[Rfam]
RNA sequence: AUCGCUUCUCGGCCUUUUGGCUAAGAUCGGUCGGAGCACCCACCCUCCUUAUGGUGGGCAGUACUCUCUCUAAAAAUAUCUGUUCUUUUCAGCUUAAUAUCUGAAAAUUCCCGCACUGCGGGACCAGUAUAUUAAACUGAUUUUUGAAAAUCGACGGGAUGUUCGGGGCUCGCUCCACUCCCGUCACGGGUCGACCCGGCAUUGCAGUGCCGGCUGGAGGUGGGCAAAGUGUA
Numbered sequence: 001a002u003c004g005c006u007u008c009u010c011g012g013c014c015u016u017u018u019g020g021c022u023a024a025g026a027u028c029g030g031u032c033g034g035a036g037c038a039c040c041c042a043c044c045c046u047c048c049u050u051a052u053g054g055u056g057g058g059c060a061g062u063a064c065u066c067u068c069u070c071u072a073a074a075a076a077u078a079u080c081u082g083u084u085c086u087u088u089u090c091a092g093c094u095u096a097a098u099a100u101c102u103g104a105a106a107a108u109u110c111c112c113g114c115a116c117u118g119c120g121g122g123a124c125c126a127g128u129a130u131a132u133u134a135a136a137c138u139g140a141u142u143u144u145u146g147a148a149a150a151u152c153g154a155c156g157g158g159a160u161g162u163u164c165g166g167g168g169c170u171c172g173c174u175c176c177a178c179u180c181c182c183g184u185c186a187c188g189g190g191u192c193g194a195c196c197c198g199g200c201a202u203u204g205c206a207g208u209g210c211c212g213g214c215u216g217g218a219g220g221u222g223g224g225c226a227a228a229g230u231g232u233a
Stems, first nucleotide, its partner, number of pairs: 007075001009073001011071002087106006109123006153185007165176004189225001191223003196217005

Rfam assigns this 233-nucleotide RNA sequence from Parnassius apollo to the family "U2 spliceosomal RNA". The organism belongs to Parnassius, within Eukaryota. The family's consensus secondary structure is taken from published work. Rfam's curators write: U2 is a small nuclear RNA (snRNA) component of the spliceosome (involved in pre-mRNA splicing). The family is grouped with related families in Rfam's "U2 clan".